[Rfam]
RNA: mir-515 microRNA precursor family
RNA sequence: UCUCAGGCUGUGACCCUCUAAAGGGAUGCACUUUCUGUGAUGUUAAAAAAGCAUAAGUCGCGUCCCUUUAGAGUGUUACGGUUUGAGG
Numbered sequence: 001u002c003u004c005a006g007g008c009u010g011u012g013a014c015c016c017u018c019u020a021a022a023g024g025g026a027u028g029c030a031c032u033u034u035c036u037g038u039g040a041u042g043u044u045a046a047a048a049a050a051g052c053a054u055a056a057g058u059c060g061c062g063u064c065c066c067u068u069u070a071g072a073g074u075g076u077u078a079c080g081g082u083u084u085g086a087g088g
Stems, first nucleotide, its partner, number of pairs: 001088005007082008016073003020069010032057003038053002